[Rfam]
RNA sequence: GGGGGUGGAUGGGGAACUGGUGUCCUCCCUGGCCUUCAAAGCCAUGUGUGCGGUGUGGUGCAUCGCAGGUGAGUUCGAUUCUCACACACUCCC
Numbered sequence: 001g002g003g004g005g006u007g008g009a010u011g012g013g014g015a016a017c018u019g020g021u022g023u024c025c026u027c028c029c030u031g032g033c034c035u036u037c038a039a040a041g042c043c044a045u046g047u048g049u050g051c052g053g054u055g056u057g058g059u060g061c062a063u064c065g066c067a068g069g070u071g072a073g074u075u076c077g078a079u080u081c082u083c084a085c086a087c088a089c090u091c092c093c
Stems, first nucleotide, its partner, number of pairs: 001093007008085001011027005017022001029046001030044004049067005070084004
The family of this 93-nucleotide RNA sequence from Alicyclobacillus sp. SO9 is "Selenocysteine transfer RNA". The organism belongs to Alicyclobacillus, within Bacteria. The match comes from Rfam's covariance-model search (64 bits). The base pairs follow the family's consensus structure, which is taken from published work.